[Rfam]
Tryptophan operon leader: a 105-nucleotide sequence from Tatumella morbirosei. The family's consensus secondary structure is taken from published work. Lineage of the source: Bacteria > Pseudomonadati > Gammaproteobacteria > Enterobacterales > Tatumella. At least 6 amino acid operons are known to be regulated by attenuation. In each a leader sequence of 150-200 bp is found upstream of the first gene in the operon. This leader sequence can assume two different secondary structures known as the terminator and the anti-terminator structure. The literature on the family includes a 1982 paper in Annu Rev Genet by Kolter and Yanofsky, "Attenuation in amino acid biosynthetic operons".
RNA sequence: UUCCGUUGGUGGCGCAUGACUCUCCCUUGAAGGGCGAUGUUGUCGUGCACCGUAAGUAUAACCACAGUGCAGAUUUCAGGGCCCGCGAAUCGCGGGCUUUUUUUU
Numbered sequence: 001u002u003c004c005g006u007u008g009g010u011g012g013c014g015c016a017u018g019a020c021u022c023u024c025c026c027u028u029g030a031a032g033g034g035c036g037a038u039g040u041u042g043u044c045g046u047g048c049a050c051c052g053u054a055a056g057u058a059u060a061a062c063c064a065c066a067g068u069g070c071a072g073a074u075u076u077c078a079g080g081g082c083c084c085g086c087g088a089a090u091c092g093c094g095g096g097c098u099u100u101u102u103u104u105u
Base pairs, nucleotide, nucleotide: 009046010045011044012043014040015039016038017037022036024034025033026032027031080098081097082096083095084094085093086092